[Rfam]
RNA sequence: AAAGCAGGUCUGCAAUUGCAGCGCUCCAUAUCAGUGGAGUGCUGUCAUUAACCCUGCUGAGAGCACGUCUGCUGAAGAGCUGCUCCUCCUCCUCGCUGUGCUGGGGAUCAGGAAGCUCUGCAGCUGAACACCU
Numbered sequence: 001a002a003a004g005c006a007g008g009u010c011u012g013c014a015a016u017u018g019c020a021g022c023g024c025u026c027c028a029u030a031u032c033a034g035u036g037g038a039g040u041g042c043u044g045u046c047a048u049u050a051a052c053c054c055u056g057c058u059g060a061g062a063g064c065a066c067g068u069c070u071g072c073u074g075a076a077g078a079g080c081u082g083c084u085c086c087u088c089c090u091c092c093u094c095g096c097u098g099u100g101c102u103g104g105g106g107a108u109c110a111g112g113a114a115g116c117u118c119u120g121c122a123g124c125u126g127a128a129c130a131c132c133u
Stems, first nucleotide, its partner, number of pairs: 003058006019044009070126001071124004076119004085112003090107006

The record is a 133-nucleotide sequence from Kryptolebias marmoratus, which matches "Small nucleolar RNA SNORA69" in Rfam. Gene Ontology terms of the family: nucleolus and RNA processing. From the family's description: U69 is a member of the H/ACA class of small nucleolar RNAs (snoRNAs) which act as guides in the the modification of uridines to pseudouridines. NCBI's taxonomy places the organism under Eukaryota, Osteoglossocephalai, Atherinomorphae, Rivulidae, Kryptolebias. Rfam classes the family as an H/ACA-box small nucleolar RNA. The base pairs follow the family's consensus structure, which was predicted with PFOLD.